RNA sequence: CUGGGCUAUGGUGACAUGUAUCCGCAGACGUGGUCGGGCAUGCUGGUGGGGGCGCUGUGCGCUCUGUCGGGCGUGUUGACCAUCGCCAUGCCCGUGCCUGUCAUCGUCAACAAC
Numbered sequence: 001c002u003g004g005g006c007u008a009u010g011g012u013g014a015c016a017u018g019u020a021u022c023c024g025c026a027g028a029c030g031u032g033g034u035c036g037g038g039c040a041u042g043c044u045g046g047u048g049g050g051g052g053c054g055c056u057g058u059g060c061g062c063u064c065u066g067u068c069g070g071g072c073g074u075g076u077u078g079a080c081c082a083u084c085g086c087c088a089u090g091c092c093c094g095u096g097c098c099u100g101u102c103a104u105c106g107u108c109a110a111c112a113a114c
Base pairs, nucleotide, nucleotide: 002113004111008107009106010105011104013102014101015100016099018097019096020095021094037077038076039075040074049063050062

Potassium channel RNA editing signal: a 114-nucleotide RNA sequence from Clupea harengus.
Rfam classes the family as a cis-regulatory element.
The organism belongs to Clupea, within Eukaryota.